[Rfam]
RNA sequence: AAACCAGCCAAUUAAUCUACUUAUCUGAAUGUUUCUGCAGAAAUUUUUUAAAAAGCUGGCAAUAGUGAUGCCAUUUUAUGAACCUUAAGGACAAGUUAGGUCAUUAUAGUCUCUGAGAAUGGCUACAACA
Numbered sequence: 001a002a003a004c005c006a007g008c009c010a011a012u013u014a015a016u017c018u019a020c021u022u023a024u025c026u027g028a029a030u031g032u033u034u035c036u037g038c039a040g041a042a043a044u045u046u047u048u049u050a051a052a053a054a055g056c057u058g059g060c061a062a063u064a065g066u067g068a069u070g071c072c073a074u075u076u077u078a079u080g081a082a083c084c085u086u087a088a089g090g091a092c093a094a095g096u097u098a099g100g101u102c103a104u105u106a107u108a109g110u111c112u113c114u115g116a117g118a119a120u121g122g123c124u125a126c127a128a129c130a
Stems, first nucleotide, its partner, number of pairs: 004059004016041003020037001070123004082110002086106003090102003
The record is a 130-nucleotide sequence from Jaculus jaculus, which matches "Small nucleolar RNA SNORA33" in Rfam. From the family's description: ACA33 is a member of the H/ACA class of snoRNA that guide the sites of modification of uridines to pseudouridines. Rfam classes the family as an H/ACA-box small nucleolar RNA. Gene Ontology terms of the family: nucleolus and RNA processing. A search with the family's covariance model found it, with a score of 106 bits.